[Rfam]
This 401-nucleotide RNA from Roseovarius tolerans belongs to the Rfam family "Bacterial RNase P class A".

RNA sequence: GCGGAGGGCCGGAUGGCCGCGGCACCCCGCAAGGGGCGUCGAGGAAAGUCCGGACUCCACAAGACAACGGUGCCGGGUAACGCCCGGCCGGGGAAACCCGAGGGAAAGCGCCACAGAAAAGAGACCGCCCGACCAUUGUGGCCGGGUAAGGGUGAAACGGUGGGGUAAGAGCCCACCGCGGGACGGGCAACCGGACCGGCACGGCAAGCCCCACCGGGAGCAAUGCCAAAUAGGGACCGCACGCGGGGACCGGUCGGGCAACCGAAACCGCCCGCAGGCACGUCUUGGCCCGGCGGUCCGGGUUGGCAGCUUGAGGCGCGCGGGCAACCACGCGUCCAGAUGAAUGGUCAUCCAAGGGGGCAACCCCUGGACAGAAUCCGGCUUACAGGCCCUCCGCGCAC
Number, nucleotide and partner (000 for none) at each position: 001g397002c396003g395004g394005a393006g392007g391008g390009c389010c388011g386012g352013a351014u350015g349016g348017c347018c346019g000020c041021g040022g039023c038024a000025c036026c035027c034028c033029g000030c000031a000032a000033g028034g027035g026036g025037c000038g023039u022040c021041g020042a000043g000044g000045a000046a384047a383048g382049u000050c381051c380052g379053g378054a377055c220056u219057c218058c217059a000060c000061a000062a000063g286064a285065c000066a283067a000068c216069g215070g214071u213072g212073c087074c086075g085076g084077g083078u000079a000080a000081c000082g000083c077084c076085c075086g074087g073088c102089c100090g099091g098092g097093g000094a000095a000096a000097c092098c091099c090100g089101a000102g088103g211104g210105a000106a000107a000108g209109c208110g205111c204112c203113a000114c000115a000116g000117a000118a000119a000120a000121g000122a000123g000124a000125c151126c150127g147128c146129c145130c144131g143132a000133c141134c140135a139136u000137u000138g000139u135140g134141g133142c000143c131144g130145g129146g128147u127148a000149a000150g126151g125152g000153u000154g000155a000156a000157a000158c000159g177160g176161u175162g174163g173164g172165g000166u000167a000168a000169g000170a000171g000172c164173c163174c162175a161176c160177c159178g200179c198180g197181g196182g000183a000184c193185g192186g191187g000188c000189a000190a000191c186192c185193g184194g000195a000196c181197c180198g179199g000200c178201a000202c000203g112204g111205c110206a000207a000208g109209c108210c104211c103212c072213a071214c070215c069216g068217g058218g057219a056220g055221c000222a000223a000224u308225g307226c306227c305228a000229a000230a000231u000232a000233g000234g299235g298236a297237c296238c295239g294240c000241a000242c000243g000244c000245g000246g000247g000248g000249a000250c000251c000252g000253g000254u000255c000256g000257g000258g000259c000260a000261a000262c000263c000264g000265a000266a000267a000268c000269c000270g000271c000272c000273c000274g000275c000276a000277g291278g290279c000280a000281c287282g000283u066284c000285u064286u063287g281288g000289c000290c278291c277292g000293g000294c239295g238296g237297u236298c235299c234300g000301g000302g000303u000304u000305g227306g226307c225308a224309g000310c000311u000312u000313g000314a000315g000316g335317c334318g333319c332320g331321c000322g329323g328324g000325c000326a000327a000328c323329c322330a000331c320332g319333c318334g317335u316336c000337c000338a000339g000340a000341u000342g000343a000344a000345u000346g018347g017348u016349c015350a014351u013352c012353c000354a000355a000356g000357g000358g000359g000360g000361c000362a000363a000364c000365c000366c000367c000368u000369g000370g000371a000372c000373a000374g000375a000376a000377u054378c053379c052380g051381g050382c048383u047384u046385a000386c011387a000388g010389g009390c008391c007392c006393u005394c004395c003396g002397c001398g000399c000400a000401c000
Source information: The literature on the family includes a 2013 paper in RNA Biol by Beauregard et al., "Identification and characterization of small RNAs in Yersinia pestis". The match comes from Rfam's covariance-model search (278 bits). The base pairs follow the family's consensus structure, which is taken from published work.